[Rfam]
RNA sequence: CCAUCACUUAAACGUGGUUGUACUCGCUUUAGACCUAAGAAAGUAAGUGCUUCCAUGUUUUGGUGAUGG
Numbered sequence: 001c002c003a004u005c006a007c008u009u010a011a012a013c014g015u016g017g018u019u020g021u022a023c024u025c026g027c028u029u030u031a032g033a034c035c036u037a038a039g040a041a042a043g044u045a046a047g048u049g050c051u052u053c054c055a056u057g058u059u060u061u062g063g064u065g066a067u068g069g
Base pairs, nucleotide, nucleotide: 001069002068003067005065006064007063008062010060011059012058013057014056015055016054017053020050021049022048023047024046026044027043028042
Dot-bracket structure: (((.((((.((((((((..(((((.(((.............))).)))))..)))))))).)))).)))
This 69-nucleotide RNA from Mus spicilegus belongs to the Rfam family "mir-302 microRNA precursor family". The family is grouped with related families in Rfam's "mir-290 clan". It scores 64 bits against the family's covariance model. Taxonomically the source falls in Mus (Eukaryota, Deuterostomia, Sarcopterygii, Eutheria). Gene Ontology terms of the family: RISC complex and miRNA-mediated post-transcriptional gene silencing. On this family, see Suh et al., Dev Biol 2004: "Human embryonic stem cells express a unique set of microRNAs".